This 120-nucleotide RNA from Aegilops tauschii belongs to the Rfam family "Small nucleolar RNA SNORD14". Pairs were carried over by alignment from the consensus structure, which was predicted with PFOLD. U14 small nucleolar RNA (U14 snoRNA) is required for early cleavages of eukaryotic precursor rRNAs. In yeasts, this molecule possess a stem-loop region (known as the Y-domain) which is essential for function. A similar structure, but with a different consensus sequence, is found in plants, but is absent in vertebrates. Rfam classes the family as a C/D-box small nucleolar RNA. Taxonomically the source falls in Aegilops tauschii (Eukaryota, Streptophytina, Embryophyta, Spermatophyta).
[Rfam]
RNA sequence: GCCUGGUGAUGAUUAGUUUAAGGCUUGUUUCUCAAACAUUCGCAGUUGCUGCCUAAGAGCUUUUGCCCAGCCAGGCUUGAGAGCCAAUGGUGUUAGAUCCUUCCUUGGAUGUCUGAGGGC
Number, nucleotide and partner (000 for none) at each position: 001g120002c119003c118004u117005g000006g000007u000008g000009a000010u000011g000012a000013u000014u000015a000016g000017u000018u000019u000020a000021a000022g000023g000024c000025u000026u000027g000028u000029u000030u000031c000032u000033c000034a000035a000036a000037c000038a000039u000040u000041c000042g000043c000044a000045g000046u000047u000048g000049c000050u000051g000052c000053c000054u000055a000056a000057g000058a000059g084060c083061u082062u081063u080064u079065g000066c000067c000068c000069a000070g000071c000072c000073a000074g000075g000076c000077u000078u000079g064080a063081g062082a061083g060084c059085c000086a000087a000088u000089g000090g000091u000092g000093u000094u000095a000096g000097a000098u000099c000100c000101u000102u000103c000104c000105u000106u000107g000108g000109a000110u000111g000112u000113c000114u000115g000116a000117g004118g003119g002120c001